This 112-nucleotide sequence from Dorea sp. D27 belongs to the Rfam family "Glycine riboswitch aptamer".

[Rfam]
RNA sequence: UGAUUUUUUUCAAGAGAGAGCCAUAUUUAUGGCCGCCGAAGAGGCAAGCCGGACAAGUGAGGGUGAACACUUGUGGGGUGAAACUUUCAGGCAAAAGGACUGGGAAAAGGAC
Numbered sequence: 001u002g003a004u005u006u007u008u009u010u011c012a013a014g015a016g017a018g019a020g021c022c023a024u025a026u027u028u029a030u031g032g033c034c035g036c037c038g039a040a041g042a043g044g045c046a047a048g049c050c051g052g053a054c055a056a057g058u059g060a061g062g063g064u065g066a067a068c069a070c071u072u073g074u075g076g077g078g079u080g081a082a083a084c085u086u087u088c089a090g091g092c093a094a095a096a097g098g099a100c101u102g103g104g105a106a107a108a109g110g111a112c
Base pairs, nucleotide, nucleotide: 006107007106008105009104010103011102012101020033021032022031023030035092036091037090038088039087042086043085044084048079049078
The source organism's lineage runs through Bacteria, Bacillati, Clostridia, Lachnospiraceae and Dorea. A search with the family's covariance model found it, with a score of 59 bits.